[Rfam]
RNA sequence: GAUCCGAUGCCACGUCGCCGGUAGCCAAGAGCUCUGACCGGCGAUGCUAUGAUUGGACCAAGAUAAAUUCCAUGUUUCGCUUGCUGAUAGGAACCUGUGGAUCUGAUUCACUGUGAUCUACGGAGCCUUUUCCGGCGAUUACACUC
Numbered sequence: 001g002a003u004c005c006g007a008u009g010c011c012a013c014g015u016c017g018c019c020g021g022u023a024g025c026c027a028a029g030a031g032c033u034c035u036g037a038c039c040g041g042c043g044a045u046g047c048u049a050u051g052a053u054u055g056g057a058c059c060a061a062g063a064u065a066a067a068u069u070c071c072a073u074g075u076u077u078c079g080c081u082u083g084c085u086g087a088u089a090g091g092a093a094c095c096u097g098u099g100g101a102u103c104u105g106a107u108u109c110a111c112u113g114u115g116a117u118c119u120a121c122g123g124a125g126c127c128u129u130u131u132c133c134g135g136c137g138a139u140u141a142c143a144c145u146c
Stems, first nucleotide, its partner, number of pairs: 003057006009050001013046006020039003024032002077138005090127002095123003099119005
Small nucleolar RNA snoR2/U65: a 146-nucleotide RNA sequence from Hibiscus syriacus. Rfam links the family to the GO terms nucleolus and RNA processing. On this family, see Shaw et al., J Cell Sci 1998: "Localization and processing from a polycistronic precursor of novel snoRNAs in maize". Taxonomically the source falls in Hibiscus (Eukaryota, Euphyllophyta, Spermatophyta, Gunneridae). The family's consensus secondary structure was predicted with WAR.